RNA sequence: AGAAUAUAGUAGUAAAUGCCGAAGACAGCAGGUGCUGUGGAAACAGCGUAAGGACAAGACGCCUGCCGAGGAAAAGAGUUUAUUUGGUAUGACUUUAUGCCUUUCUGUCUUUGGAACAUUAUGGACAGGAAGGUUUUUAUAUUAUACU
Numbered sequence: 001a002g003a004a005u006a007u008a009g010u011a012g013u014a015a016a017u018g019c020c021g022a023a024g025a026c027a028g029c030a031g032g033u034g035c036u037g038u039g040g041a042a043a044c045a046g047c048g049u050a051a052g053g054a055c056a057a058g059a060c061g062c063c064u065g066c067c068g069a070g071g072a073a074a075a076g077a078g079u080u081u082a083u084u085u086g087g088u089a090u091g092a093c094u095u096u097a098u099g100c101c102u103u104u105c106u107g108u109c110u111u112u113g114g115a116a117c118a119u120u121a122u123g124g125a126c127a128g129g130a131a132g133g134u135u136u137u138u139a140u141a142u143u144a145u146a147c148u
Stems, first nucleotide, its partner, number of pairs: 028066006034047005100133010
RNA: Ribosomal protein L10 leader
Organism: Lachnospiraceae bacterium 28-4